Ribosomal S15 leader: a 120-nucleotide RNA from Lonsdalea quercina. The literature on the family includes a 1996 paper in Biochimie by Benard et al., "Pseudoknot and translational control in the expression of the S15 ribosomal protein". The family is grouped with related families in Rfam's "Ribosomal Protein S15 Leader clan". The E. coli Ribosomal S15 gene 5' UTR can form two alternative structures.

[Rfam]
RNA sequence: CCGGGUCGCUGAAUUAGAGAUCGGCACCCUUUUUAUCUUAUAUAAUAUUAUUGGAGUUCUACUAUGUCUCUAAGCGUUGAAGCUAAAGCAAAAAUCGUUGCAGAUUUCGGUCGUGAUGCU
Numbered sequence: 001c002c003g004g005g006u007c008g009c010u011g012a013a014u015u016a017g018a019g020a021u022c023g024g025c026a027c028c029c030u031u032u033u034u035a036u037c038u039u040a041u042a043u044a045a046u047a048u049u050a051u052u053g054g055a056g057u058u059c060u061a062c063u064a065u066g067u068c069u070c071u072a073a074g075c076g077u078u079g080a081a082g083c084u085a086a087a088g089c090a091a092a093a094a095u096c097g098u099u100g101c102a103g104a105u106u107u108c109g110g111u112c113g114u115g116a117u118g119c120u
Stems, first nucleotide, its partner, number of pairs: 008025005051073006